The record is a 72-nucleotide RNA from Cricetulus griseus, which matches "mir-21 microRNA precursor family" in Rfam. The family has 41 seed sequences and 777 matches in Rfam 15.1. Lineage of the source: Eukaryota > Bilateria > Sarcopterygii > Cricetinae > Cricetulus. The literature on the family includes a 2006 paper in FEBS Lett by Xu et al., "Identification of microRNAs from different tissues of chicken embryo and adult chicken".

RNA sequence: UGUCGGGUAGCUUAUCAGACUGAUGUUGACUGUUGAAUCUCAUGGCAACAGCAGUCGAUGGGCUGUCUGACA
Numbered sequence: 001u002g003u004c005g006g007g008u009a010g011c012u013u014a015u016c017a018g019a020c021u022g023a024u025g026u027u028g029a030c031u032g033u034u035g036a037a038u039c040u041c042a043u044g045g046c047a048a049c050a051g052c053a054g055u056c057g058a059u060g061g062g063c064u065g066u067c068u069g070a071c072a
Stems, first nucleotide, its partner, number of pairs: 008065008018056005024050005030044001